[Rfam]
RNA sequence: AUAAAUGAACAGGGGUGUCGGUCAGAACCGGCUGAGAUAGGAACUGUGCGUUCCGGACCCUAUAACCUGAUUUGGAUCAUGCCAACGUAGGGAGCUUUAUCUAUCAUUAC
Numbered sequence: 001a002u003a004a005a006u007g008a009a010c011a012g013g014g015g016u017g018u019c020g021g022u023c024a025g026a027a028c029c030g031g032c033u034g035a036g037a038u039a040g041g042a043a044c045u046g047u048g049c050g051u052u053c054c055g056g057a058c059c060c061u062a063u064a065a066c067c068u069g070a071u072u073u074g075g076a077u078c079a080u081g082c083c084a085a086c087g088u089a090g091g092g093a094g095c096u097u098u099a100u101c102u103a104u105c106a107u108u109a110c
Base pairs, nucleotide, nucleotide: 007097008096010094011061012060013059014058016055017032018031019030020029021028040054041053042052043051044050066091067090068089069088072085073084074083075082

This 110-nucleotide RNA sequence from Lachnospiraceae bacterium KH1T2 belongs to the Rfam family "TPP riboswitch aptamer (THI element)". Its family is annotated with thiamine pyrophosphate binding in the Gene Ontology. Rfam's curators write: Vitamin B(1) in its active form thiamin pyrophosphate (TPP) is an essential coenzyme that is synthesised by coupling of pyrimidine and thiazole moieties in bacteria.